[Rfam]
Rfam assigns this 57-nucleotide RNA sequence from Phtheirospermum japonicum to the family "Plastid-rps18 3UTR RNA". The family has 238 seed sequences and 1,462 matches in Rfam 15.1. Rfam classes the family as a cis-regulatory element. Plastid rps18 is a non-coding RNA (ncRNA) present in plastids. It was identified as a short stem-loop motif in the 3 prime untranslate region (3UTR) of rps18 gene.

RNA sequence: AGCCAGUAUUUUACGAUUAAGAACCAAUUGGAUCUUGUAUAGACAAUGUAUUAAUUU
Numbered sequence: 001a002g003c004c005a006g007u008a009u010u011u012u013a014c015g016a017u018u019a020a021g022a023a024c025c026a027a028u029u030g031g032a033u034c035u036u037g038u039a040u041a042g043a044c045a046a047u048g049u050a051u052u053a054a055u056u057u
Base pairs, nucleotide, nucleotide: 018037019036020035021034022033024031025030

The base pairs follow the family's consensus structure, which was predicted with LocARNA. NCBI's taxonomy places the organism under Eukaryota, Streptophyta, Mesangiospermae, Gunneridae, Phtheirospermum.